[Rfam]
RNA sequence: UUGUAAAGAUAUGUUUGGCUGUAGGGCUUAUUCCUUAGGUUUUUUAUGUAAGGGCAUAUUGAAGAA
Numbered sequence: 001u002u003g004u005a006a007a008g009a010u011a012u013g014u015u016u017g018g019c020u021g022u023a024g025g026g027c028u029u030a031u032u033c034c035u036u037a038g039g040u041u042u043u044u045u046a047u048g049u050a051a052g053g054g055c056a057u058a059u060u061g062a063a064g065a066a
Stems, first nucleotide, its partner, number of pairs: 008060006015030001017028004033053005
RNA: S4-Fusobacteriales ribosomal protein leader